[Rfam]
Nucleotides: 348
Base pairs, nucleotide, nucleotide: 001344002343003342004341005340006339007338008337009336010335011333012313013312014311015310016309017308018307020049021048023046024045025044026043027042054331055330056329058328059327060326061325062324063222064221065220066219070252071251072250073249075218076217077216078215079214080094081093082092083091084090095109096107097106098105099104110213111212115211116210117207118206119205131152132151133148134147135146136145137144138143160178161177163175164174165173179201180199181198182197183196184195185194186193187192226270227269228268229267236261237260238259239258240257245255246254247253277296278295279294280293281292282291283290284289
Number, partner (000 for none) and nucleotide at each position: 001344u002343g003342a004341g005340u006339a007338a008337g009336a010335u011333a012313a013312a014311c015310c016309a017308u018307c019000g020049c021048a022000g023046c024045u025044g026043c027042a028000a029000g030000a031000a032000g033000u034000c035000g036000a037000a038000a039000g040000a041000c042027u043026g044025c045024a046023g047000g048021u049020g050000a051000g052000g053000a054331a055330a056329g057000u058328c059327c060326g061325g062324g063222c064221u065220u066219c067000a068000c069000a070252g071251g072250g073249c074000a075218g076217g077216g078215u079214g080094c081093c082092g083091g084090a085000u086000a087000a088000c089000g090084u091083c092082c093081g094080g095109c096107g097106g098105a099104g100000g101000c102000g103000a104099c105098u106097c107096c108000a109095g110213g111212g112000a113000u114000a115211g116210u117207g118206c119205a120000a121000c122000a123000g124000a125000a126000a127000u128000g129000u130000a131152c132151c133148g134147c135146c136145u137144c138143a139000u140000g141000a142000a143138u144137g145136a146135g147134g148133u149000a150000a151132g152131g153000g154000u155000g156000g157000a158000a159000g160178g161177g162000c163175a164174g165173u166000g167000c168000a169000a170000g171000a172000g173165a174164c175163u176000a177161c178160c179201g180199c181198c182197u183196g184195u185194c186193u187192g188000g189000c190000a191000a192187c193186a194185g195184a196183c197182g198181g199180g200000g201179c202000a203000u204000a205119u206118g207117u208000a209000a210116a211115c212111c213110c214079c215078a216077c217076c218075u219066g220065a221064a222063g223000c224000a225000a226270g227269g228268c229267c230000g231000a232000a233000c234000a235000u236261g237260g238259a239258g240257c241000a242000u243000a244000u245255g246254g247253c248000g249073g250072c251071c252070c253247g254246u255245c256000a257240g258239c259238u260237c261236c262000g263000g264000g265000u266000a267229g268228g269227c270226c271000g272000c273000u274000u275000g276000a277296c278295c279294c280293u281292g282291c283290c284289g285000g286000c287000a288000a289284c290283g291282g292281c293280a294279g295278g296277g297000c298000u299000a300000g301000a302000u303000g304000g305000a306000u307018g308017a309016u310015g311014g312013u313012u314000c315000g316000c317000g318000a319000c320000a321000u322000a323000a324062c325061c326060c327059g328058g329056c330055u331054u332000a333011u334000c335010g336009u337008c338007u339006u340005g341004c342003u343002c344001a345000g346000a347000a348000g